Rfam assigns this 74-nucleotide sequence to the family "S10-Clostridia ribosomal protein leader".

RNA sequence: GAUAUGCGAAGAAGCGGGAGGUUGCGACAGUUAGUCGGUUUUUCCGUGGAGUAUGUCCGAUUUUAAACCGGGCG
Numbered sequence: 001g002a003u004a005u006g007c008g009a010a011g012a013a014g015c016g017g018g019a020g021g022u023u024g025c026g027a028c029a030g031u032u033a034g035u036c037g038g039u040u041u042u043u044c045c046g047u048g049g050a051g052u053a054u055g056u057c058c059g060a061u062u063u064u065a066a067a068c069c070g071g072g073c074g
Stems, first nucleotide, its partner, number of pairs: 014047003018044003021040001025037004054074006
A reference for the family is Eckert and Weinberg (2020), "Discovery of 20 novel ribosomal leader candidates in bacteria and archaea", BMC Microbiol.